[Rfam]
RNA sequence: GUGGAUCCCGCAGGAAUUGAACCUACAAUUGCAAAUAUGAGUUGGGCCGCUUUAACCAUUCAGCCAUGGAUGC
Numbered sequence: 001g002u003g004g005a006u007c008c009c010g011c012a013g014g015a016a017u018u019g020a021a022c023c024u025a026c027a028a029u030u031g032c033a034a035a036u037a038u039g040a041g042u043u044g045g046g047c048c049g050c051u052u053u054a055a056c057c058a059u060u061c062a063g064c065c066a067u068g069g070a071u072g073c
Stems, first nucleotide, its partner, number of pairs: 003073001005071004010026001012024003037067003041064006049057001
The family of this 73-nucleotide sequence from Musa balbisiana is "Plastid-ycf2 5UTR RNA". The organism belongs to Musa, within Eukaryota. About the family: Plastid ycf2 is a non-coding RNA (ncRNA) recognised in plastids. It was found in the prime untranslated region (5UTR) of ycf2 genes, it presents a tRNA-like motif which suggests it can be involved in mRNA maturation, particularly involved in defining the precise 5' end of the transcript. The base pairs follow the family's consensus structure, which was predicted with LocARNA.